[Rfam]
RNA: traJ-II RNA
Organism: Phocoenobacter uteri
RNA sequence: GGGCAAGAUAUGUAAAUAUGGCCAUCUUUUUCAAAGAUAUCCAUAUUUACUUGGACUAAUUCGCUAAAGCUCAAGUCCAAUCUUGCUCUGCGAGGCU
Numbered sequence: 001g002g003g004c005a006a007g008a009u010a011u012g013u014a015a016a017u018a019u020g021g022c023c024a025u026c027u028u029u030u031u032c033a034a035a036g037a038u039a040u041c042c043a044u045a046u047u048u049a050c051u052u053g054g055a056c057u058a059a060u061u062c063g064c065u066a067a068a069g070c071u072c073a074a075g076u077c078c079a080a081u082c083u084u085g086c087u088c089u090g091c092g093a094g095g096c097u
Stems, first nucleotide, its partner, number of pairs: 001088009012050006019043003024038006053078004063070002